[Rfam]
RNA: Bacterial RNase P class A
Organism: Dorea sp. CAG:317
RNA sequence: CAAGUAAGACAAGUAAUCGCAGCUGCAGACGCCGAAAGGCAGCAGGUGAGGAAAGUCCGGGCUUCACAGGGCAGGAUGCCGGAUAACGUCCGGUGGAGGCGACUCCAAGGCCAGUGCAACAGAAAUGUACCGCGUUUGCAAUGAGCCAUGCGCCAUGGAAAGACCAGAGACAUAGUAAGUUUACUUAUGAAUGUCUCUGGUCUUUCCAUGGCAUACGGCGAAUGCCGUGUAGCGAGAAGAGCGAAGCGAUUGGAGCUACGAGCAUGGCGUGUGGCUCAUUGCAAACGUAAGGGUGGAAGGGCAGUGUAAGAGACUACCGCCCUGCUGGUAACAGCAGGGGCACAUGUAAACCCCAUCCGAAGCAAGACCGGAUAAAGACAAUGUGGCGGCCCGUCACGUCUUAGGUAGGUUGCUUGAUCUCACCGGUAACGGUGGGGCUAGAUAGAUGAUUACUCAACGACAUAACCCGGCUUAUCGUCUUGCUUGUUGA
Numbered sequence: 001c002a003a004g005u006a007a008g009a010c011a012a013g014u015a016a017u018c019g020c021a022g023c024u025g026c027a028g029a030c031g032c033c034g035a036a037a038g039g040c041a042g043c044a045g046g047u048g049a050g051g052a053a054a055g056u057c058c059g060g061g062c063u064u065c066a067c068a069g070g071g072c073a074g075g076a077u078g079c080c081g082g083a084u085a086a087c088g089u090c091c092g093g094u095g096g097a098g099g100c101g102a103c104u105c106c107a108a109g110g111c112c113a114g115u116g117c118a119a120c121a122g123a124a125a126u127g128u129a130c131c132g133c134g135u136u137u138g139c140a141a142u143g144a145g146c147c148a149u150g151c152g153c154c155a156u157g158g159a160a161a162g163a164c165c166a167g168a169g170a171c172a173u174a175g176u177a178a179g180u181u182u183a184c185u186u187a188u189g190a191a192u193g194u195c196u197c198u199g200g201u202c203u204u205u206c207c208a209u210g211g212c213a214u215a216c217g218g219c220g221a222a223u224g225c226c227g228u229g230u231a232g233c234g235a236g237a238a239g240a241g242c243g244a245a246g247c248g249a250u251u252g253g254a255g256c257u258a259c260g261a262g263c264a265u266g267g268c269g270u271g272u273g274g275c276u277c278a279u280u281g282c283a284a285a286c287g288u289a290a291g292g293g294u295g296g297a298a299g300g301g302c303a304g305u306g307u308a309a310g311a312g313a314c315u316a317c318c319g320c321c322c323u324g325c326u327g328g329u330a331a332c333a334g335c336a337g338g339g340g341c342a343c344a345u346g347u348a349a350a351c352c353c354c355a356u357c358c359g360a361a362g363c364a365a366g367a368c369c370g371g372a373u374a375a376a377g378a379c380a381a382u383g384u385g386g387c388g389g390c391c392c393g394u395c396a397c398g399u400c401u402u403a404g405g406u407a408g409g410u411u412g413c414u415u416g417a418u419c420u421c422a423c424c425g426g427u428a429a430c431g432g433u434g435g436g437g438c439u440a441g442a443u444a445g446a447u448g449a450u451u452a453c454u455c456a457a458c459g460a461c462a463u464a465a466c467c468c469g470g471c472u473u474a475u476c477g478u479c480u481u482g483c484u485u486g487u488u489g490a
Base pairs, nucleotide, nucleotide: 001486002485003484004483005482006481007480008479009478010477011475012454013453014452015451016450017449018448020048021047023045024044025043026042028040053473054472055471057470058469059468060467061466062362063361064360065359069392070391071390072389074358075357076356077355078354079093080092081091082090083089094108095106096105097104098103109353110352114351115350116347117346118345130292131291132288133287134286135285136284137283138282139281140280141279142278143277144276145275146274147273148272149271150270151269152268153267154266155265156264157263300318301317303315304314305313319341320339321338322337323336324335325334326333327332366411367410368409369408376401377400378399379398383397384396385395386394387393418437419436420435421434422433423432424431425430
Dot-bracket structure: ((((((((((((((((((.((.((((.(...........).)))).))....[[[.[[[[[((((...[[[[.((((((((((.....)))))(((((....)))).)((...(((((...........((((((((((((((((((((((((((((.........................................................................................................))))))))))))))))))))))))))..)).......((.(((.......))).))(((((((((....)))))))).)...)))..)))))))))))))...((((......((((...(((((.]]]])))))))))......))))......((((((((....))))))))..........)))))))...........]]]]]]]].).))))))))))....